[Rfam]
RNA sequence: GCAGUGCCCCGGCGUGUCGCUGGUCUUCAUGGUAAGACGAGAGGAAAGUCCGGGCAGCACAGAGCAUCCCACUUCCGAAAAUAGAAGCUAUUGGUGACAGUAGGUGUAGGCAGAAGAAAAUAACCGCCUUGUUGAGUCUUUAGAUGAAAGCAGGGUAAGGGUGAGAAGGUGGUGUAAGAGACCACCAGAUGACGGGUGAUUGUCAUGCUGUGUCGGCUGGGAGCUGUAAGCUCAUGUAUACCGCAGACAGAGGGUUGCUCGCCCGAGUGUCUUUUAUGGCAGCUGCGGAGGGUAGAGUGCUCAAGCCCUGGGGUGACUCAGGGAUUAGAUAAAUGACAUGCACCUGCACUUUGUUGCAGGAACAGAACUCGGCUUAUAGGGGCACUGCUUUC
Numbered sequence: 001g002c003a004g005u006g007c008c009c010c011g012g013c014g015u016g017u018c019g020c021u022g023g024u025c026u027u028c029a030u031g032g033u034a035a036g037a038c039g040a041g042a043g044g045a046a047a048g049u050c051c052g053g054g055c056a057g058c059a060c061a062g063a064g065c066a067u068c069c070c071a072c073u074u075c076c077g078a079a080a081a082u083a084g085a086a087g088c089u090a091u092u093g094g095u096g097a098c099a100g101u102a103g104g105u106g107u108a109g110g111c112a113g114a115a116g117a118a119a120a121u122a123a124c125c126g127c128c129u130u131g132u133u134g135a136g137u138c139u140u141u142a143g144a145u146g147a148a149a150g151c152a153g154g155g156u157a158a159g160g161g162u163g164a165g166a167a168g169g170u171g172g173u174g175u176a177a178g179a180g181a182c183c184a185c186c187a188g189a190u191g192a193c194g195g196g197u198g199a200u201u202g203u204c205a206u207g208c209u210g211u212g213u214c215g216g217c218u219g220g221g222a223g224c225u226g227u228a229a230g231c232u233c234a235u236g237u238a239u240a241c242c243g244c245a246g247a248c249a250g251a252g253g254g255u256u257g258c259u260c261g262c263c264c265g266a267g268u269g270u271c272u273u274u275u276a277u278g279g280c281a282g283c284u285g286c287g288g289a290g291g292g293u294a295g296a297g298u299g300c301u302c303a304a305g306c307c308c309u310g311g312g313g314u315g316a317c318u319c320a321g322g323g324a325u326u327a328g329a330u331a332a333a334u335g336a337c338a339u340g341c342a343c344c345u346g347c348a349c350u351u352u353g354u355u356g357c358a359g360g361a362a363c364a365g366a367a368c369u370c371g372g373c374u375u376a377u378a379g380g381g382g383c384a385c386u387g388c389u390u391u392c
Stems, first nucleotide, its partner, number of pairs: 001388010011377001012341007020041002023038005046375003050372005055226004063275002067222005072087004088103001090101004104217002110213003124160002126156008168186006188208001189206007230298004241288005268281004306323007
Dot-bracket structure: ((((((((((((((((((.((.(((((......))))).))....[[[.[[[[[((((....[[..(((((((((........))))(.((((....)))).)((....(((...........((((((((((...............))))))))..)).......((((((.......)))))).((((((((....))))))).)..)))..)))))))))))...((((.......(((((......................((((..]]..))))..)))))......)))).......(((((((....)))))))...........)))))))..........................]]]]]]]].).))))))))))....

This 392-nucleotide RNA sequence from Prevotella sp. CAG:386 belongs to the Rfam family "Bacterial RNase P class A". Rfam links the family to the GO terms ribonuclease P activity, dimeric ribonuclease P complex and tRNA processing. The match comes from Rfam's covariance-model search (194 bits). Pairs were carried over by alignment from the consensus structure, which is taken from published work.